The family of this 213-nucleotide RNA from Parasphingorhabdus marina is "permuted transfer-messenger RNA". Rfam describes the family as follows. Bacterial tmRNA, also known as 10Sa RNA or SsrA, is named for its dual tRNA and mRNA-like properties. Pairs were carried over by alignment from the consensus structure, which is taken from published work. Rfam classes the family as a non-coding RNA gene.

RNA sequence: GGUGAUAAAUUGUGAUGUGCAAUAGGCACAGCGGACCCGGGGGCAGUACCCGGCGGCUCCACCAUUUCGGAUGGCUUUGAGGCAUCCUUGUUGACGGGGCCGAACCAGGAUCGACGUGUGUUGAAAAGCAUUGUUUUUACCCGGCCUGAGUAUGCCGUGAUUGCUCAUUUUAUAAGUGCAAACGAUAACGAAGCACUCGCAGUAGCGGCUUAA
Numbered sequence: 001g002g003u004g005a006u007a008a009a010u011u012g013u014g015a016u017g018u019g020c021a022a023u024a025g026g027c028a029c030a031g032c033g034g035a036c037c038c039g040g041g042g043g044c045a046g047u048a049c050c051c052g053g054c055g056g057c058u059c060c061a062c063c064a065u066u067u068c069g070g071a072u073g074g075c076u077u078u079g080a081g082g083c084a085u086c087c088u089u090g091u092u093g094a095c096g097g098g099g100c101c102g103a104a105c106c107a108g109g110a111u112c113g114a115c116g117u118g119u120g121u122u123g124a125a126a127a128g129c130a131u132u133g134u135u136u137u138u139a140c141c142c143g144g145c146c147u148g149a150g151u152a153u154g155c156c157g158u159g160a161u162u163g164c165u166c167a168u169u170u171u172a173u174a175a176g177u178g179c180a181a182a183c184g185a186u187a188a189c190g191a192a193g194c195a196c197u198c199g200c201a202g203u204a205g206c207g208g209c210u211u212a213a
Stems, first nucleotide, its partner, number of pairs: 001141005015131004027120003031117003037053005054102007142157004